[Rfam]
RNA: ASdes TB sRNA
Organism: Tsukamurella paurometabola
RNA sequence: AGCUUGACCGGGUCGACCGCGCGGGUCACCAGGAGGUAGUCGCGCAUGGCGAUGCCGUGCCGGUUCUC
Numbered sequence: 001a002g003c004u005u006g007a008c009c010g011g012g013u014c015g016a017c018c019g020c021g022c023g024g025g026u027c028a029c030c031a032g033g034a035g036g037u038a039g040u041c042g043c044g045c046a047u048g049g050c051g052a053u054g055c056c057g058u059g060c061c062g063g064u065u066c067u068c
Base pairs, nucleotide, nucleotide: 004063005062006061008059011030012029013028015027016026017025018024035056036055037054038053040052041051042050043049